RNA sequence: AUGUCCCACGCGUCCACUGCGGUCCUUCCGCGCCGUCCGCACCCAACUGACGACAGCGCGCGACGUUCUGUUAGCC
Numbered sequence: 001a002u003g004u005c006c007c008a009c010g011c012g013u014c015c016a017c018u019g020c021g022g023u024c025c026u027u028c029c030g031c032g033c034c035g036u037c038c039g040c041a042c043c044c045a046a047c048u049g050a051c052g053a054c055a056g057c058g059c060g061c062g063a064c065g066u067u068c069u070g071u072u073a074g075c076c
Stems, first nucleotide, its partner, number of pairs: 002016002006012001020035004025030001047074006

This 76-nucleotide RNA from Xanthomonas oryzae belongs to the Rfam family "Xanthomonas sRNA sX9". The match comes from Rfam's covariance-model search (72 bits). Lineage of the source: Bacteria > Pseudomonadota > Gammaproteobacteria > Lysobacteraceae > Xanthomonas oryzae pv. oryzae. Pairs were carried over by alignment from the consensus structure, which was predicted with RNAalifold. The family has 16 seed sequences and 309 matches in Rfam 15.1. It is annotated as a small RNA.